[Rfam]
RNA sequence: UCGCGUGAAGCGCCGUUGGCAGGAGCGGGGGAACCAAGGUUUGCGCCGGGUCCCAGGGGCCGGGCAGCACAUGCUGCCCACUUCGGGAAACGGCUAGGGGUGAAGUCGCACAGCGCGAGCGUGCGGCCGGGCAAUUCGCCUUCUGCUCUUACGGAGCGGGGGGCACCCCAUCGGCCCGAACCCGACAGCUCACCUCGCAGGCGUCGGUGAGGGGAUCU
Numbered sequence: 001u002c003g004c005g006u007g008a009a010g011c012g013c014c015g016u017u018g019g020c021a022g023g024a025g026c027g028g029g030g031g032a033a034c035c036a037a038g039g040u041u042u043g044c045g046c047c048g049g050g051u052c053c054c055a056g057g058g059g060c061c062g063g064g065c066a067g068c069a070c071a072u073g074c075u076g077c078c079c080a081c082u083u084c085g086g087g088a089a090a091c092g093g094c095u096a097g098g099g100g101u102g103a104a105g106u107c108g109c110a111c112a113g114c115g116c117g118a119g120c121g122u123g124c125g126g127c128c129g130g131g132c133a134a135u136u137c138g139c140c141u142u143c144u145g146c147u148c149u150u151a152c153g154g155a156g157c158g159g160g161g162g163g164c165a166c167c168c169c170a171u172c173g174g175c176c177c178g179a180a181c182c183c184g185a186c187a188g189c190u191c192a193c194c195u196c197g198c199a200g201g202c203g204u205c206g207g208u209g210a211g212g213g214g215a216u217c218u
Base pairs, nucleotide, nucleotide: 001024002023025198026197027196028195029194030193035097098183099182100181106126107125108124109123110122111121129177130176131175132174
RNA: c-di-AMP riboswitch aptamer (ydaO/yuaA leader)
Organism: Streptomyces albus